[Rfam]
RNA sequence: UGUGCCGCGAGGCGGACUUAUGCAGAAUACCAACUGCGUACCGGAUAGAACCCGGAUAGGACUACUUAUAUAGGAGAAAACAAAUG
Numbered sequence: 001u002g003u004g005c006c007g008c009g010a011g012g013c014g015g016a017c018u019u020a021u022g023c024a025g026a027a028u029a030c031c032a033a034c035u036g037c038g039u040a041c042c043g044g045a046u047a048g049a050a051c052c053c054g055g056a057u058a059g060g061a062c063u064a065c066u067u068a069u070a071u072a073g074g075a076g077a078a079a080a081c082a083a084a085u086g
Stems, first nucleotide, its partner, number of pairs: 001016001003014004019040007041055004
Dot-bracket structure: (.((((....)))).)..(((((((........)))))))((((.......))))...............................

freshwater-2 RNA: an 86-nucleotide RNA. By type it is a cis-regulatory element. Rfam's curators put it in the seed alignment.